[Rfam]
RNA: MAT2A 3'UTR stem loop E
Organism: Oryctolagus cuniculus
Nucleotides: 066
Stems, first nucleotide, its partner, number of pairs: 001066003006062003010059002015055004019045007026032002
Number, partner (000 for none) and nucleotide at each position: 001066c002065c003064a004000u005000c006062a007061u008060u009000g010059c011058c012000a013000g014000a015055u016054a017053g018052g019045c020044c021043a022042a023041g024040g025039u026032g027031u028000c029000c030000u031027a032026c033000a034000g035000a036000a037000a038000a039025a040024u041023c042022u043021u044020g045019g046000g047000u048000u049000a050000g051000a052018c053017c054016u055015a056000c057000g058011g059010g060008g061007g062006u063000c064003u065002g066001g